[Rfam]
RNA sequence: GCCGAGAGUCGUGGCGGGCUCCUGUAAAUCAGCUUCUAGAUGGCUUAGGAUGGGGAAGGUUUGCCUAUCAGAUAAACAUCUGAUAUCUGGUGUCGUUGACCGAGCGUCCAAACCAAGCGUAGCGUCGACAGGCCAUUGAUCUAGAAGUUCAUUAAUGACCGGUCGUAGUCAGACUACUGACUUCUAAAGAGAGAUGGAUGGCUCAGGUCCGUAAGGAAGCAGGCAAAAGUCUCCGCGCUAUGACAGUGGUUGGAUAGCGCACGCGAGUCAUUGGGUUUCAGGUGCUGUUAAUAUAUAUCCUCACUCAUUCUUUU
Numbered sequence: 001g002c003c004g005a006g007a008g009u010c011g012u013g014g015c016g017g018g019c020u021c022c023u024g025u026a027a028a029u030c031a032g033c034u035u036c037u038a039g040a041u042g043g044c045u046u047a048g049g050a051u052g053g054g055g056a057a058g059g060u061u062u063g064c065c066u067a068u069c070a071g072a073u074a075a076a077c078a079u080c081u082g083a084u085a086u087c088u089g090g091u092g093u094c095g096u097u098g099a100c101c102g103a104g105c106g107u108c109c110a111a112a113c114c115a116a117g118c119g120u121a122g123c124g125u126c127g128a129c130a131g132g133c134c135a136u137u138g139a140u141c142u143a144g145a146a147g148u149u150c151a152u153u154a155a156u157g158a159c160c161g162g163u164c165g166u167a168g169u170c171a172g173a174c175u176a177c178u179g180a181c182u183u184c185u186a187a188a189g190a191g192a193g194a195u196g197g198a199u200g201g202c203u204c205a206g207g208u209c210c211g212u213a214a215g216g217a218a219g220c221a222g223g224c225a226a227a228a229g230u231c232u233c234c235g236c237g238c239u240a241u242g243a244c245a246g247u248g249g250u251u252g253g254a255u256a257g258c259g260c261a262c263g264c265g266a267g268u269c270a271u272u273g274g275g276u277u278u279c280a281g282g283u284g285c286u287g288u289u290a291a292u293a294u295a296u297a298u299c300c301u302c303a304c305u306c307a308u309u310c311u312u313u314u
Stems, first nucleotide, its partner, number of pairs: 001044003004023001006021005028041003047311008057301003061297001066290002069287003077284007085276008094267001096265001101263002104260004108253002111251005117244001118242008126165004131160002134157007143148001166189001191233005201224003208217003

Rfam assigns this 314-nucleotide RNA from Strongyloides stercoralis to the family "Metazoan signal recognition particle RNA".
It is annotated as a non-coding RNA gene.
Its Rfam clan is "SRP clan".
The signal recognition particle (SRP) is a universally conserved ribonucleoprotein. It is involved in the co-translational targeting of proteins to membranes.
A reference for the family is Wild et al. (2002), "Towards the structure of the mammalian signal recognition particle", Curr Opin Struct Biol.
The match comes from Rfam's covariance-model search (168 bits).